[Rfam]
Record summary: The family of this 399-nucleotide RNA sequence from Oceaniovalibus sp. ACAM 378 is "Bacterial RNase P class A". Rfam's curators write: Ribonuclease P (RNase P) is a ubiquitous endoribonuclease, found in archaea, bacteria and eukarya as well as chloroplasts and mitochondria. The literature on the family includes a 2013 paper in RNA Biol by Beauregard et al., "Identification and characterization of small RNAs in Yersinia pestis". NCBI's taxonomy places the organism under Bacteria, Pseudomonadota, Alphaproteobacteria, Rhodobacterales, Oceaniovalibus.
RNA sequence: GCGGAUGGCUGGAUGGCCGCGUGCCCUUGCAAAAGGGUGCGAGGAAAGUCCGGACUCCCAGAAACAACGGUGCCGGGUAACGCCCGGGCGGGGCAACCCGACGGAAAGCGCCACAGAGAACAGACUGCCUUAGCCGGUCGCUUGCGAUCGGCAAUGGUGAGGGUGAAACGGUGCGGUAAGAGCGCACCGCGCCCCCGGCAACGGGGGUGGCACGGCAAGCCCCACCGGGAGCAAUGCCGAAUAGGGAUUUCAAGGGGUUUCCCCAGGGCCGUUUCUGCCCCGAAAUCCGGGUAGGCAGCUUGACCCUGUCGGCAACGGCAGGGCCAGAGGAAUGGUCAUCCAUCCGUGACGGGCAACCGGAGCGGAGGACAAAAUCCGGCUUACAGGCCGUCCGCGCAA
Numbered sequence: 001g002c003g004g005a006u007g008g009c010u011g012g013a014u015g016g017c018c019g020c021g022u023g024c025c026c027u028u029g030c031a032a033a034a035g036g037g038u039g040c041g042a043g044g045a046a047a048g049u050c051c052g053g054a055c056u057c058c059c060a061g062a063a064a065c066a067a068c069g070g071u072g073c074c075g076g077g078u079a080a081c082g083c084c085c086g087g088g089c090g091g092g093g094c095a096a097c098c099c100g101a102c103g104g105a106a107a108g109c110g111c112c113a114c115a116g117a118g119a120a121c122a123g124a125c126u127g128c129c130u131u132a133g134c135c136g137g138u139c140g141c142u143u144g145c146g147a148u149c150g151g152c153a154a155u156g157g158u159g160a161g162g163g164u165g166a167a168a169c170g171g172u173g174c175g176g177u178a179a180g181a182g183c184g185c186a187c188c189g190c191g192c193c194c195c196c197g198g199c200a201a202c203g204g205g206g207g208u209g210g211c212a213c214g215g216c217a218a219g220c221c222c223c224a225c226c227g228g229g230a231g232c233a234a235u236g237c238c239g240a241a242u243a244g245g246g247a248u249u250u251c252a253a254g255g256g257g258u259u260u261c262c263c264c265a266g267g268g269c270c271g272u273u274u275c276u277g278c279c280c281c282g283a284a285a286u287c288c289g290g291g292u293a294g295g296c297a298g299c300u301u302g303a304c305c306c307u308g309u310c311g312g313c314a315a316c317g318g319c320a321g322g323g324c325c326a327g328a329g330g331a332a333u334g335g336u337c338a339u340c341c342a343u344c345c346g347u348g349a350c351g352g353g354c355a356a357c358c359g360g361a362g363c364g365g366a367g368g369a370c371a372a373a374a375u376c377c378g379g380c381u382u383a384c385a386g387g388c389c390g391u392c393c394g395c396g397c398a399a
Base pairs, nucleotide, nucleotide: 001395002394003393004392005391006390007389008388009387010386011384012340013339014338015337016336017335018334020041021040022039023038024037025036026035027034028033046382047381048380050379051378052377053376054375055231056230057229058228064274066272068227069226070225071224072223073087074086075085076084077083088102089100090099091098092097103222104221108220109219110216111215112214125162126161127158128157129156131154133152134151135150136149137148138147139146140145170188171187172186173185174184175183189211190209191208192207193206194205195204196203197202235297236296237295238294245288246287247286248285249284250283266280267279268278269277304323305322306321307320308319309318310317311316